This 173-nucleotide RNA from Porphyromonas sp. HMSC065F10 belongs to the Rfam family "Group II catalytic intron D1-D4-3".

[Rfam]
RNA sequence: CAAGGGGCGCCUCUUGGGAGAGAAUAAGCAAUAGCGAACUCGUGGCCUGACGAACAGAGACCUAAUAUUAAGGCGUAUUAAGCGGACUAGCUUGCCAAAGGCGGUGAAGAUCCAAAAGGCAAUCGUAACCUUGAUGCGUAAAUUAGGCAGGUAAACGAUGAAAGGUGUAAGGC
Dot-bracket structure: ((((((....))))))...........((..(..(....((((.(((((...........((((((......(((.((((((.((((..(((..........)))...).)))................)))))).)))..)))))))))))..)))).....)....)..))

A search with the family's covariance model found it, with a score of 84 bits.
Lineage of the source: Bacteria > Pseudomonadati > Bacteroidia > Bacteroidales > Porphyromonas.